[Rfam]
RNA sequence: CCUAUGGAGUGUACUAGAACUUGUGAGUAGCAAAUUACUUGUAAUUGCAAAAGCAUACACGAAGAAGUAGGAA
Dot-bracket structure: (((((...(((((........(((.....(((.((........)))))....))))))))......)))))..
The record is a 73-nucleotide RNA, which matches "RAGATH-18 RNA" in Rfam. The family's consensus secondary structure is taken from published work. The family's RNA type in Rfam is small RNA. Rfam's curators write: Actinobacteria, Firmicutes, Fusobacteria, Thermotogae (1 example).